[Rfam]
This 132-nucleotide RNA sequence from Paenibacillus dendritiformis belongs to the Rfam family "c-di-AMP riboswitch aptamer (ydaO/yuaA leader)". The match comes from Rfam's covariance-model search (106 bits). The base pairs follow the family's consensus structure.
RNA sequence: AUUCGAAUCAAGCCGAAGCUCGGAAGAGCGCGGGGGAACCAACUUUUGGGGUGAAGGCGCAUAUUUGCGUCAGGGGUGACCUCUUUGACCCGAACCCGACAGCUAACCUCGUAGGCUGCAAAGGGAGAGAUG
Numbered sequence: 001a002u003u004c005g006a007a008u009c010a011a012g013c014c015g016a017a018g019c020u021c022g023g024a025a026g027a028g029c030g031c032g033g034g035g036g037a038a039c040c041a042a043c044u045u046u047u048g049g050g051g052u053g054a055a056g057g058c059g060c061a062u063a064u065u066u067g068c069g070u071c072a073g074g075g076g077u078g079a080c081c082u083c084u085u086u087g088a089c090c091c092g093a094a095c096c097c098g099a100c101a102g103c104u105a106a107c108c109u110c111g112u113a114g115g116c117u118g119c120a121a122a123g124g125g126a127g128a129g130a131u132g
Base pairs, nucleotide, nucleotide: 011117012116013115014114018029019028020027030112031111032110033109034108035107040048041047049097050096051095057070058069059068060067073091074090075089